[Rfam]
Shown here is a 108-nucleotide RNA sequence from Gottfriedia endophytica, a member of the family "SAM riboswitch aptamer (S box leader)". The match comes from Rfam's covariance-model search (82 bits).
RNA sequence: UUCUUAUCAAGAGAGGUGGAGGGACUGACCCUGCGAAGCCUCGGCAACCAGCAUUUUUAUGCCCGGUGCUAAUUUCAGAGGAAGUUAUUAUGAUUCCGAAGAUAAGAA
Numbered sequence: 001u002u003c004u005u006a007u008c009a010a011g012a013g014a015g016g017u018g019g020a021g022g023g024a025c026u027g028a029c030c031c032u033g034c035g036a037a038g039c040c041u042c043g044g045c046a047a048c049c050a051g052c053a054u055u056u057u058u059a060u061g062c063c064c065g066g067u068g069c070u071a072a073u074u075u076c077a078g079a080g081g082a083a084g085u086u087a088u089u090a091u092g093a094u095u096c097c098g099a100a101g102a103u104a105a106g107a108a
Stems, first nucleotide, its partner, number of pairs: 001108008013042005021031003025078004043070004048066002051062003074100001080097004085092001